[Rfam]
RNA sequence: GUGUACUCUACAGUGCACGUGUCUCCAGUGUGGCUCGGAGGCUGGAGACGCGGCCCUGUUGGAGUAAC
Numbered sequence: 001g002u003g004u005a006c007u008c009u010a011c012a013g014u015g016c017a018c019g020u021g022u023c024u025c026c027a028g029u030g031u032g033g034c035u036c037g038g039a040g041g042c043u044g045g046a047g048a049c050g051c052g053g054c055c056c057u058g059u060u061g062g063a064g065u066a067a068c
Base pairs, nucleotide, nucleotide: 006064007063008062009061010059011058012057013056015054016053018052019051020050021049022048023047024046025045026044027043028042029041
The family of this 68-nucleotide RNA sequence from Bos taurus is "mir-139 microRNA precursor family". Pairs were carried over by alignment from the consensus structure, which was predicted with RNAalifold. Taxonomically the source falls in Bos (Eukaryota, Mammalia, Artiodactyla, Bovidae).